[Rfam]
RNA: mir-737 microRNA precursor family
RNA sequence: CUGUUUUUUUAGGUUUUGAUUUUCGUGUUUUGGACUGAAAAUCUAAACCUAAAGAAAGUC
Number, nucleotide and partner (000 for none) at each position: 001c000002u000003g000004u057005u056006u055007u054008u053009u052010u051011a050012g049013g048014u047015u046016u045017u000018g043019a042020u041021u040022u039023u038024c037025g000026u000027g000028u000029u000030u000031u000032g000033g000034a000035c000036u000037g024038a023039a022040a021041a020042u019043c018044u000045a016046a015047a014048c013049c012050u011051a010052a009053a008054g007055a006056a005057a004058g000059u000060c000